Notes: The family of this 117-nucleotide RNA from Plasticicumulans lactativorans is "ALIL pseudoknot". By type it is a cis-regulatory element.

[Rfam]
RNA sequence: CGCAUUUUUCGCCCAGGCGGAGCUCGACCGCCGAUUCAAGUCCUGAGAGCCUUCGUCGACGCGCACCGCGAUGCUUUCGGGGUCGAACCGAUCUGCCGGCCAUUGCAGAUCGCCCCC
Numbered sequence: 001c002g003c004a005u006u007u008u009u010c011g012c013c014c015a016g017g018c019g020g021a022g023c024u025c026g027a028c029c030g031c032c033g034a035u036u037c038a039a040g041u042c043c044u045g046a047g048a049g050c051c052u053u054c055g056u057c058g059a060c061g062c063g064c065a066c067c068g069c070g071a072u073g074c075u076u077u078c079g080g081g082g083u084c085g086a087a088c089c090g091a092u093c094u095g096c097c098g099g100c101c102a103u104u105g106c107a108g109a110u111c112g113c114c115c116c117c
Base pairs, nucleotide, nucleotide: 016032017031018030019029020028079116080115081114082113089112090111092109093108094107095106096105098103

The family's consensus secondary structure is taken from published work.